Rfam assigns this 47-nucleotide RNA sequence from Tenebrionibacter intestinalis to the family "Guanidine-II riboswitch aptamer (mini-ykkC)". The literature on the family includes a 2007 paper in Nucleic Acids Res by Weinberg et al., "Identification of 22 candidate structured RNAs in bacteria using the CMfinder comparative genomics pipeline".
[Rfam]
RNA sequence: CCUGUGGGACGACCCGCAGGCGUAUCUUAAUUAUGGGGACGGCCCCU
Numbered sequence: 001c002c003u004g005u006g007g008g009a010c011g012a013c014c015c016g017c018a019g020g021c022g023u024a025u026c027u028u029a030a031u032u033a034u035g036g037g038g039a040c041g042g043c044c045c046c047u
Stems, first nucleotide, its partner, number of pairs: 001020008035046004

Pairs were carried over by alignment from the consensus structure, which is taken from published work.